[Rfam]
RNA sequence: UAUAGUAGGAAACAAAAUGAACGAAGUUCAUUUUUUAUAAAUGUUUCCGACGAAUAGCCUCUGACAGAAGGGCAGGGGCAUUACAUAUU
Numbered sequence: 001u002a003u004a005g006u007a008g009g010a011a012a013c014a015a016a017a018u019g020a021a022c023g024a025a026g027u028u029c030a031u032u033u034u035u036u037a038u039a040a041a042u043g044u045u046u047c048c049g050a051c052g053a054a055u056a057g058c059c060u061c062u063g064a065c066a067g068a069a070g071g072g073c074a075g076g077g078g079c080a081u082u083a084c085a086u087a088u089u
Base pairs, nucleotide, nucleotide: 008048009047010046011045012044013043016032017031018030019029020028021027057079058078059077061075062074065071
Dot-bracket structure: .......((((((..((((((.....))))))..........))))))........(((.((..(.....)..)).)))..........